[Rfam]
RNA sequence: GCCGAGCUUGGUAACGGAAGCUUGUAACCUGCGUGGGGGCAUUAGGGUGAUAGAACACGGGUUCGUUUCACUGAGUUGGAUCCAUCGUGGUCUGUUUCUGGCUGGCCCAUUCCAAGCCGAGAAGUUGAGUCAAAGGGAAUUGAGUGAAAGCUCGGGUUCUCGUGAGUCUUAGAGCGGAGAGUACUGCGUGAGGCUGGAUUCACAGAGCAGCGAGUAUCUCCCGCUGUCGGCAGUGGAAGGAUAAGAAGUUGGUUCCACUCGGAUCCAUCAUAGCUCAAUGAGUUGACCCCUGACCUGAACCAUCAUUUUU
Number, nucleotide and partner (000 for none) at each position: 001g040002c039003c038004g023005a022006g021007c020008u019009u018010g000011g000012u000013a000014a000015c000016g000017g000018a009019a008020g007021c006022u005023u004024g000025u000026a000027a000028c037029c036030u035031g000032c000033g000034u000035g030036g029037g028038g003039g002040c001041a000042u000043u000044a309045g308046g307047g306048u305049g304050a303051u302052a000053g300054a000055a000056c297057a296058c292059g291060g290061g287062u286063u285064c000065g283066u282067u000068u281069c280070a279071c000072u277073g276074a275075g274076u273077u272078g266079g265080a264081u263082c262083c261084a000085u000086c000087g258088u257089g256090g255091u000092c000093u000094g000095u000096u000097u000098c252099u251100g250101g249102c248103u247104g000105g000106c000107c240108c239109a000110u238111u237112c236113c235114a234115a000116g231117c230118c229119g228120a000121g227122a000123a225124g224125u223126u000127g168128a167129g000130u165131c164132a163133a000134a000135g161136g160137g159138a158139a157140u156141u154142g153143a152144g151145u150146g000147a000148a000149a000150g145151c144152u143153c142154g141155g000156g140157u139158u138159c137160u136161c135162g000163u132164g131165a130166g000167u128168c127169u174170u000171a000172g000173a000174g169175c000176g221177g220178a219179g218180a217181g000182u000183a000184c000185u214186g000187c212188g211189u210190g000191a000192g000193g000194c205195u204196g203197g000198a000199u000200u000201c000202a000203c196204a195205g194206a000207g000208c000209a000210g189211c188212g187213a000214g185215u000216a000217u180218c179219u178220c177221c176222c000223g125224c124225u123226g000227u121228c119229g118230g117231c116232a000233g000234u114235g113236g112237a111238a110239g108240g107241a000242u000243a000244a000245g000246a000247a103248g102249u101250u100251g099252g098253u000254u000255c090256c089257a088258c087259u000260c000261g083262g082263a081264u080265c079266c078267a000268u000269c000270a000271u000272a077273g076274c075275u074276c073277a072278a000279u070280g069281a068282g066283u065284u000285g063286a062287c061288c000289c000290c060291u059292g058293a000294c000295c000296u057297g056298a000299a000300c053301c000302a051303u050304c049305a048306u047307u046308u045309u044310u000